[Rfam]
RNA sequence: GAAGCAAGUAGAGGCGCAUCGCGUUAUCACUACGCCGGAUGAGGGGGCACCCGAAGAUCCCGGCGGAAAGGAGCCGAUGCCGAAGAGACCCGGAUGGCGAUCCCGGUCUCUGGGGCUGCAUUGAACAAGUGCAGCACUGCCAUAGGAAUUCCCCGUCUGCGCGGGGGUAACAAUGACUAUGGAGCGCUACUGAGGUA
Numbered sequence: 001g002a003a004g005c006a007a008g009u010a011g012a013g014g015c016g017c018a019u020c021g022c023g024u025u026a027u028c029a030c031u032a033c034g035c036c037g038g039a040u041g042a043g044g045g046g047g048c049a050c051c052c053g054a055a056g057a058u059c060c061c062g063g064c065g066g067a068a069a070g071g072a073g074c075c076g077a078u079g080c081c082g083a084a085g086a087g088a089c090c091c092g093g094a095u096g097g098c099g100a101u102c103c104c105g106g107u108c109u110c111u112g113g114g115g116c117u118g119c120a121u122u123g124a125a126c127a128a129g130u131g132c133a134g135c136a137c138u139g140c141c142a143u144a145g146g147a148a149u150u151c152c153c154c155g156u157c158u159g160c161g162c163g164g165g166g167g168u169a170a171c172a173a174u175g176a177c178u179a180u181g182g183a184g185c186g187c188u189a190c191u192g193a194g195g196u197a
Base pairs, nucleotide, nucleotide: 007191008190009189010188011187016080017079018078019077020076021075023074024073025072033065034064035063036062037061038060084111085110086109087108088107089106090105092103093102094101095100112138113137115135116134117133118132119131120130121129122128140182141181142180143179144178145177